[Rfam]
RNA: L31-Firmicutes ribosomal protein leader
RNA sequence: CUUUGGAGUAGCAUAUAUUUCAAGGCGGAAGGAG
Numbered sequence: 001c002u003u004u005g006g007a008g009u010a011g012c013a014u015a016u017a018u019u020u021c022a023a024g025g026c027g028g029a030a031g032g033a034g
Base pairs, nucleotide, nucleotide: 001025002024003023004022005021006020007019008018009017010016
Dot-bracket structure: ((((((((((.....)))))))))).........